[Rfam]
RNA sequence: CCAGUACCAAAGCUACGAGGCUCAUUCCACACAGGACGCUAUGUUCGUCCAGAUUCAUGAGCGGGCUAAGGUCUGAGUAUUCUAUUCCCCCACGAUUGGCUCUAGCUGGGCCCAGUCAUAAUUGGCAUGAGGCAGCGUACCAGAAACACGGUCUUCCCUAUCGUUCGGUUACGGACGCCCAAAGAUCCUUCAGAGGGGAGGGAUAUAGGAGAAGAACCUUGAAAUAUGCGUCGGGGAUUGGGUGUUCGAUCAUCGCCAUCGGCCUGUCGAACGUCCUUCAGUGCACUUCGUAGCCCGCAAUCUGAUUUUUCACUUGCGGAACUCGAUUCAGACUACUCUGGGACUGG
Numbered sequence: 001c002c003a004g005u006a007c008c009a010a011a012g013c014u015a016c017g018a019g020g021c022u023c024a025u026u027c028c029a030c031a032c033a034g035g036a037c038g039c040u041a042u043g044u045u046c047g048u049c050c051a052g053a054u055u056c057a058u059g060a061g062c063g064g065g066c067u068a069a070g071g072u073c074u075g076a077g078u079a080u081u082c083u084a085u086u087c088c089c090c091c092a093c094g095a096u097u098g099g100c101u102c103u104a105g106c107u108g109g110g111c112c113c114a115g116u117c118a119u120a121a122u123u124g125g126c127a128u129g130a131g132g133c134a135g136c137g138u139a140c141c142a143g144a145a146a147c148a149c150g151g152u153c154u155u156c157c158c159u160a161u162c163g164u165u166c167g168g169u170u171a172c173g174g175a176c177g178c179c180c181a182a183a184g185a186u187c188c189u190u191c192a193g194a195g196g197g198g199a200g201g202g203a204u205a206u207a208g209g210a211g212a213a214g215a216a217c218c219u220u221g222a223a224a225u226a227u228g229c230g231u232c233g234g235g236g237a238u239u240g241g242g243u244g245u246u247c248g249a250u251c252a253u254c255g256c257c258a259u260c261g262g263c264c265u266g267u268c269g270a271a272c273g274u275c276c277u278u279c280a281g282u283g284c285a286c287u288u289c290g291u292a293g294c295c296c297g298c299a300a301u302c303u304g305a306u307u308u309u310u311c312a313c314u315u316g317c318g319g320a321a322c323u324c325g326a327u328u329c330a331g332a333c334u335a336c337u338c339u340g341g342g343a344c345u346g347g
Stems, first nucleotide, its partner, number of pairs: 001347004007341003012294007020062005034050005073331005088236004098112005115126004132232001135229004150218003295319006
A member of the RNA family "Nuclear RNase P" from Armillaria borealis, 347 nucleotides long. Taxonomically the source falls in Armillaria (Eukaryota, Agaricomycetidae, Marasmiineae, Physalacriaceae). The match comes from Rfam's covariance-model search (75 bits).